This 92-nucleotide RNA sequence from Halalkalibacter akibai belongs to the Rfam family "Purine riboswitch aptamer".
A search with the family's covariance model found it, with a score of 69 bits.
Lineage of the source: Bacteria > Bacillati > Bacillota > Halalkalibacter > Halalkalibacter akibai.
The family's consensus secondary structure is taken from published work.
RNA sequence: UUACAAUAUUAUUUUAACGUUCGUAUAUCCUCAAUAAUAUGGUUUGAGGGUCUCUAUAAGGAACCGUAAAAUCCUAACUACGAAUGAAUACA
Number, nucleotide and partner (000 for none) at each position: 001u000002u000003a000004c000005a000006a000007u000008a000009u000010u000011a000012u000013u000014u000015u000016a000017a000018c086019g085020u084021u083022c082023g081024u080025a079026u000027a000028u000029c049030c048031u047032c046033a045034a044035u000036a000037a000038u000039a000040u000041g000042g000043u000044u034045u033046g032047a031048g030049g029050g000051u000052c000053u000054c000055u000056a000057u000058a000059a075060g074061g073062a072063a000064c000065c000066g000067u000068a000069a000070a000071a000072u062073c061074c060075u059076a000077a000078c000079u025080a024081c023082g022083a021084a020085u019086g018087a000088a000089u000090a000091c000092a000